The record is a 135-nucleotide RNA from Levilactobacillus brevis, which matches "FMN riboswitch aptamer (RFN element)" in Rfam. Rfam links the family to the GO term FMN binding. NCBI's taxonomy places the organism under Bacteria, Bacillota, Bacilli, Lactobacillaceae, Levilactobacillus brevis. The base pairs follow the family's consensus structure, which is taken from published work. The RFN element is a highly conserved domain that is found frequently in the 5'-untranslated regions of prokaryotic mRNAs that encode for flavin mononucleotide (FMN) biosynthesis and transport proteins.
RNA sequence: UGAUUUCUUCGGGGCAGGGUGAAAUUCCCGACCGACGGUGACAACUUAAAGUUGAAGUCCGUGACCCACGUUUAACGUGGUUGACCCAGUGUGAGUCUGGGACCGACAGUAUAGUCUGGAUGGGAGAAGAAACGA
Numbered sequence: 001u002g003a004u005u006u007c008u009u010c011g012g013g014g015c016a017g018g019g020u021g022a023a024a025u026u027c028c029c030g031a032c033c034g035a036c037g038g039u040g041a042c043a044a045c046u047u048a049a050a051g052u053u054g055a056a057g058u059c060c061g062u063g064a065c066c067c068a069c070g071u072u073u074a075a076c077g078u079g080g081u082u083g084a085c086c087c088a089g090u091g092u093g094a095g096u097c098u099g100g101g102a103c104c105g106a107c108a109g110u111a112u113a114g115u116c117u118g119g120a121u122g123g124g125a126g127a128a129g130a131a132a133c134g135a
Stems, first nucleotide, its partner, number of pairs: 004132007017029003031115002033105002035062004057103002066080001085101005107118003